gntR-DTE RNA: a 154-nucleotide sequence.

RNA sequence: CGGGUAAGGGCCGUCGGCGGCACACCUUGCUCGUGUGUCAGCUCUGGAGAACGCCCGUGUGGAUCAUCCCUUCAUUCCUGGAGGUCAACCCCUCGGGUUCCACCUGGCACACGGCCGCCCUGCUGGCGUCAGAGCAGUGACGAUGACGCACCCG
Numbered sequence: 001c002g003g004g005u006a007a008g009g010g011c012c013g014u015c016g017g018c019g020g021c022a023c024a025c026c027u028u029g030c031u032c033g034u035g036u037g038u039c040a041g042c043u044c045u046g047g048a049g050a051a052c053g054c055c056c057g058u059g060u061g062g063a064u065c066a067u068c069c070c071u072u073c074a075u076u077c078c079u080g081g082a083g084g085u086c087a088a089c090c091c092c093u094c095g096g097g098u099u100c101c102a103c104c105u106g107g108c109a110c111a112c113g114g115c116c117g118c119c120c121u122g123c124u125g126g127c128g129u130c131a132g133a134g135c136a137g138u139g140a141c142g143a144u145g146a147c148g149c150a151c152c153c154g
Stems, first nucleotide, its partner, number of pairs: 016119006033112009045102003053098004
A search with the family's covariance model found it, with a score of 109 bits. The base pairs follow the family's consensus structure, which is taken from published work.